RNA: Manganese Mn2+ riboswitch aptamer (yybP-ykoY)
Organism: Pusillimonas noertemannii
RNA sequence: CGCCCCGUCAUCAGGGAGUAGCCGCACCCCGCAAAGGGGUGGUCUGCGUCAACACACUUGGCCUUACAGGGUCAUGGCGCAAACAGCUCGGGCCUUUCGUCCGCAUCAGCCUGGCAAGACUUUUGACCACCUGUCUCCGUCAACCGGCCGGGGCU
Numbered sequence: 001c002g003c004c005c006c007g008u009c010a011u012c013a014g015g016g017a018g019u020a021g022c023c024g025c026a027c028c029c030c031g032c033a034a035a036g037g038g039g040u041g042g043u044c045u046g047c048g049u050c051a052a053c054a055c056a057c058u059u060g061g062c063c064u065u066a067c068a069g070g071g072u073c074a075u076g077g078c079g080c081a082a083a084c085a086g087c088u089c090g091g092g093c094c095u096u097u098c099g100u101c102c103g104c105a106u107c108a109g110c111c112u113g114g115c116a117a118g119a120c121u122u123u124u125g126a127c128c129a130c131c132u133g134u135c136u137c138c139g140u141c142a143a144c145c146g147g148c149c150g151g152g153g154c155u
Stems, first nucleotide, its partner, number of pairs: 026040003042084002045081007059074005085155003088151004